[Rfam]
RNA sequence: AAUGAAAAGCCAACAUCGCCUCAUAUAUCAUUGGGAAUAAGGCCCGAAAGUUUCUACCCGAUUACCGUAAAUGAUCGGACUAUGAGGAAGGUAUAUUUCAUC
Number, nucleotide and partner (000 for none) at each position: 001a000002a000003u000004g000005a000006a000007a000008a000009g000010c000011c000012a000013a000014c000015a000016u000017c000018g000019c087020c086021u085022c084023a083024u082025a081026u000027a000028u000029c000030a000031u047032u046033g045034g044035g043036a000037a000038u000039a000040a000041g000042g000043c035044c034045c033046g032047a031048a000049a000050g000051u000052u000053u000054c000055u000056a000057c000058c078059c077060g076061a075062u074063u073064a072065c000066c000067g000068u000069a000070a000071a000072u064073g063074a062075u061076c060077g059078g058079a000080c000081u025082a024083u023084g022085a021086g020087g019088a000089a000090g000091g000092u000093a000094u000095a000096u000097u000098u000099c000100a000101u000102c000
Annotation:
The family of this 102-nucleotide RNA from Schinkia azotoformans is "Purine riboswitch aptamer". NCBI's taxonomy places the organism under Bacteria, Bacillati, Bacillota, Caryophanales, Schinkia azotoformans. The base pairs follow the family's consensus structure, which is taken from published work.